[Rfam]
RNA sequence: UGACAAGACACUUCACUACGGACCGUCCGGCACGUACCUGCCGGUGAAGGGAAUGGGUC
Numbered sequence: 001u002g003a004c005a006a007g008a009c010a011c012u013u014c015a016c017u018a019c020g021g022a023c024c025g026u027c028c029g030g031c032a033c034g035u036a037c038c039u040g041c042c043g044g045u046g047a048a049g050g051g052a053a054u055g056g057g058u059c
Stems, first nucleotide, its partner, number of pairs: 009051001011049005027044006
Dot-bracket structure: ........(.(((((...........((((((......))))))))))).)........